[Rfam]
RNA sequence: UCCUGGGCCGUGUAUUCAAUUGCGAAUAACACUCUUACCUAAAGCUGUUAUUGCUUGAGAAUACACGUCGCCGGA
Numbered sequence: 001u002c003c004u005g006g007g008c009c010g011u012g013u014a015u016u017c018a019a020u021u022g023c024g025a026a027u028a029a030c031a032c033u034c035u036u037a038c039c040u041a042a043a044g045c046u047g048u049u050a051u052u053g054c055u056u057g058a059g060a061a062u063a064c065a066c067g068u069c070g071c072c073g074g075a
Stems, first nucleotide, its partner, number of pairs: 001075003005071001009067002012064006022054002025052007032044002
RNA: mir-137 microRNA precursor family
Organism: Ixodes scapularis